A member of the RNA family "U12 minor spliceosomal RNA" from Trichonephila inaurata, 149 nucleotides long. By type it is a spliceosomal small nuclear RNA. The source organism's lineage runs through Eukaryota, Protostomia, Arachnida, Araneomorphae and Trichonephila inaurata. The literature on the family includes a 1997 paper in Trends Biochem Sci by Tarn and Steitz, "Pre-mRNA splicing: the discovery of a new spliceosome doubles the challenge". The pairing is the family consensus, mapped onto this sequence.
RNA sequence: GUGCCUUAAACUUAUGAAAAGAAAAAAAAAGUCCCUUGGUAACGCUUGGCGCAACCAAGACUCAUUGGUAUUAAUUUUUGGAGGGGUACAGGUCGUCCCUGUGUAGCCUGCCUACUUUCGCGGGCCGCCGGGUUGGUGUGAUCUGCCUC
Numbered sequence: 001g002u003g004c005c006u007u008a009a010a011c012u013u014a015u016g017a018a019a020a021g022a023a024a025a026a027a028a029a030a031g032u033c034c035c036u037u038g039g040u041a042a043c044g045c046u047u048g049g050c051g052c053a054a055c056c057a058a059g060a061c062u063c064a065u066u067g068g069u070a071u072u073a074a075u076u077u078u079u080g081g082a083g084g085g086g087u088a089c090a091g092g093u094c095g096u097c098c099c100u101g102u103g104u105a106g107c108c109u110g111c112c113u114a115c116u117u118u119c120g121c122g123g124g125c126c127g128c129c130g131g132g133u134u135g136g137u138g139u140g141a142u143c144u145g146c147c148u149c
Base pairs, nucleotide, nucleotide: 005021006020007019031052032051034049035048038045053069055067057065083149084148085147086146087145090144091143092142093141094140095139096138100132102130103129107124108123109122110121111120